[Rfam]
RNA sequence: AUAAAAAAACCCUACCGUUUUACCGGUAGGGUCCUCCUUGUACUAGUAUUCACUAGCAAGAAGGCAAAGGGAGAGGAGAAACCGGAGGAAGAACUUAUGGGGAAACGUAAGUCUUCUCCGCGG
Dot-bracket structure: .........((((((((......))))))))((((.....(.((((......)))).).........))))...........((((.((((.(((((..........)))))))))))))...
RNA: ylbH leader
Organism: Priestia taiwanensis